[Rfam]
RNA sequence: AAAGUAGCUUAUGCAACUGCUAUGGAUUGGUUCAUUGCCGUUUGCUACGCAUUC
Numbered sequence: 001a002a003a004g005u006a007g008c009u010u011a012u013g014c015a016a017c018u019g020c021u022a023u024g025g026a027u028u029g030g031u032u033c034a035u036u037g038c039c040g041u042u043u044g045c046u047a048c049g050c051a052u053u054c
Base pairs, nucleotide, nucleotide: 002053003052007050008049010047011046013045014044015042016041017040019038020037022035023034024033025032026031
Editing element of GABA-3 exon 9: a 54-nucleotide sequence from Leptobrachium leishanense. Rfam classes the family as a cis-regulatory element. The organism belongs to Leptobrachium, within Eukaryota. The literature on the family includes a 2007 paper in RNA by Ohlson et al., "Editing modifies the GABA(A) receptor subunit alpha3". Pairs were carried over by alignment from the consensus structure, which is taken from published work.